RNA sequence: AAGGAAUGAUGAUUCUAUGUUGGUCCGUGUUGCUGAAAGUAAUGAUAUAGUUACAAUAUACUGACCUU
Number, nucleotide and partner (000 for none) at each position: 001a068002a067003g066004g065005a000006a000007u000008g000009a000010u000011g000012a000013u000014u000015c000016u000017a000018u000019g000020u000021u000022g000023g000024u000025c000026c000027g000028u000029g000030u000031u000032g000033c000034u000035g000036a000037a000038a000039g000040u000041a000042a000043u000044g000045a000046u000047a000048u000049a000050g000051u000052u000053a000054c000055a000056a000057u000058a000059u000060a000061c000062u000063g000064a000065c004066c003067u002068u001
The family of this 68-nucleotide sequence from Octopus sinensis is "Small nucleolar RNA SNORD18".
Its family is annotated with nucleolus and RNA processing in the Gene Ontology.
Clan: SNORD18 clan.
The family has 16 seed sequences and 2,622 matches in Rfam 15.1.
For this family Rfam cites "Two different snoRNAs are encoded in introns of amphibian and human L1 ribosomal protein genes" (Prislei et al., Nucleic Acids Res, 1993).